[Rfam]
Lysine riboswitch aptamer: a 182-nucleotide RNA sequence from Veronia pacifica. Lineage of the source: Bacteria > Pseudomonadota > Vibrionales > Vibrionaceae > Veronia. The family's consensus secondary structure is taken from published work. The match comes from Rfam's covariance-model search (128 bits).
RNA sequence: UAUGCACGUAGAGGUGCGCUAUUUAUCAGUAAUCAGUAGUAGGGUGAUACCUUUGAUCACUUAUGAAAGGAAAUAGCGCCGAAGCAAAACGUAUUUAUCACGUCGUUUUGUUGGGGUUGUUAAUGAAUAGUUACAACACUGCCAUAGUAUUUUGUUAUUCACUAUGGAGCGCUACUGUAGGA
Numbered sequence: 001u002a003u004g005c006a007c008g009u010a011g012a013g014g015u016g017c018g019c020u021a022u023u024u025a026u027c028a029g030u031a032a033u034c035a036g037u038a039g040u041a042g043g044g045u046g047a048u049a050c051c052u053u054u055g056a057u058c059a060c061u062u063a064u065g066a067a068a069g070g071a072a073a074u075a076g077c078g079c080c081g082a083a084g085c086a087a088a089a090c091g092u093a094u095u096u097a098u099c100a101c102g103u104c105g106u107u108u109u110g111u112u113g114g115g116g117u118u119g120u121u122a123a124u125g126a127a128u129a130g131u132u133a134c135a136a137c138a139c140u141g142c143c144a145u146a147g148u149a150u151u152u153u154g155u156u157a158u159u160c161a162c163u164a165u166g167g168a169g170c171g172c173u174a175c176u177g178u179a180g181g182a
Base pairs, nucleotide, nucleotide: 008175009174010173011172016079017078018077019076020075021074022073023072024071032064033063035061036060037059039057083112084111085110086109087108088107089106090105091104113140114139116137117136118135119134121133122132123131124130142167143166144165145164146163147162148161